[Rfam]
A member of the RNA family "mir-10 microRNA precursor family" from Chironomus riparius, 90 nucleotides long.
The organism belongs to Chironomus, within Eukaryota.
RNA sequence: UUACGCCUACCCUGUAGAUCCGAAUUUGUUCUAUGAAUUAUUUCAGAAAAUCAUUGGAACGACAAAUUCGGUUCUAGAGAGGUUUGUGUA
Number, nucleotide and partner (000 for none) at each position: 001u000002u090003a089004c088005g087006c086007c000008u000009a000010c082011c081012c000013u000014g000015u000016a075017g074018a073019u000020c071021c070022g069023a068024a067025u066026u065027u064028g063029u062030u061031c000032u000033a000034u000035g000036a000037a000038u000039u000040a000041u000042u000043u000044c000045a000046g000047a000048a000049a000050a000051u000052c000053a000054u000055u000056g000057g000058a000059a000060c000061g030062a029063c028064a027065a026066a025067u024068u023069c022070g021071g020072u000073u018074c017075u016076a000077g000078a000079g000080a000081g011082g010083u000084u000085u000086g006087u005088g004089u003090a002